[Rfam]
RNA: Small nucleolar RNA SNORD34
Organism: Chenopodium quinoa
RNA sequence: UGAGGCCUGUGAUGAUCUUUUGAAAUAUGUCUACAUUGUUUGACUUAACAGUGAUGAGAAAAUAUUAAGUCUGAGGCCUUA
Numbered sequence: 001u002g003a004g005g006c007c008u009g010u011g012a013u014g015a016u017c018u019u020u021u022g023a024a025a026u027a028u029g030u031c032u033a034c035a036u037u038g039u040u041u042g043a044c045u046u047a048a049c050a051g052u053g054a055u056g057a058g059a060a061a062a063u064a065u066u067a068a069g070u071c072u073g074a075g076g077c078c079u080u081a
Base pairs, nucleotide, nucleotide: 001081002080004078005077006076007075